[Rfam]
RNA sequence: AUAAAAAAACCUGCAGAAUAAAUCUCUGCAGGUCUCUUUGUUUUCAUACUAAAAACAAAGAGGCAAAGGGAGAGGAGAAACCGGAGAGAACUUAUGGGGAAGUCUAAGUCUUCUCCGUGU
Numbered sequence: 001a002u003a004a005a006a007a008a009a010c011c012u013g014c015a016g017a018a019u020a021a022a023u024c025u026c027u028g029c030a031g032g033u034c035u036c037u038u039u040g041u042u043u044u045c046a047u048a049c050u051a052a053a054a055a056c057a058a059a060g061a062g063g064c065a066a067a068g069g070g071a072g073a074g075g076a077g078a079a080a081c082c083g084g085a086g087a088g089a090a091c092u093u094a095u096g097g098g099g100a101a102g103u104c105u106a107a108g109u110c111u112u113c114u115c116c117g118u119g120u
Stems, first nucleotide, its partner, number of pairs: 009033009034070005039057006082117004087111002090109005